Notes:
A member of the RNA family "MIR9563 microRNA precursor family" from Brassica oleracea, 126 nucleotides long. NCBI's taxonomy places the organism under Eukaryota, Streptophyta, Embryophyta, Pentapetalae, Brassica oleracea. Its family is annotated with RISC complex and miRNA-mediated post-transcriptional gene silencing in the Gene Ontology. The base pairs follow the family's consensus structure, which was predicted with RNAalifold.
[Rfam]
RNA sequence: GGAAUAUAAGAAUCCGUCUCUUAACUUUUAACUAUAAAAGCUAAGAGCAGGCUCUUAAAACUCUUAUUUAAGAACCAGUUCUUAGCUUUUUUUAGUUAAAAAUUAAGAGACGGGUUCUUAUAUUCC
Numbered sequence: 001g002g003a004a005u006a007u008a009a010g011a012a013u014c015c016g017u018c019u020c021u022u023a024a025c026u027u028u029u030a031a032c033u034a035u036a037a038a039a040g041c042u043a044a045g046a047g048c049a050g051g052c053u054c055u056u057a058a059a060a061c062u063c064u065u066a067u068u069u070a071a072g073a074a075c076c077a078g079u080u081c082u083u084a085g086c087u088u089u090u091u092u093u094a095g096u097u098a099a100a101a102a103u104u105a106a107g108a109g110a111c112g113g114g115u116u117c118u119u120a121u122a123u124u125c126c
Stems, first nucleotide, its partner, number of pairs: 001126024026101009036091004041085007